[Rfam]
RNA sequence: UGUAAACAUCCCCGACUGGAAGCUGUGAUGUACAUGUUCUAGCUUUCAGUAGGGUGUUUGCUGC
Dot-bracket structure: .((((((((((...((((((((((................)))))))))).))))))))))...
Source information: mir-30 microRNA precursor family: a 64-nucleotide sequence from Salmo salar. The sequence is in the family's curated seed alignment. A reference for the family is Lagos-Quintana et al. (2001), "Identification of novel genes coding for small expressed RNAs", Science. From the family's description: This family consists of the mammalian microRNA (miRNA) precursor mir-30a. Animal miRNAs are transcribed as ~70nt precursors and subsequently processed by the Dicer enzyme to give a ~22nt product. In this case the mature sequence comes from both the 3' (miR-30) and 5' (mir-97-6) arms of the precursor. NCBI's taxonomy places the organism under Eukaryota, Opisthokonta, Bilateria, Osteoglossocephalai, Salmo.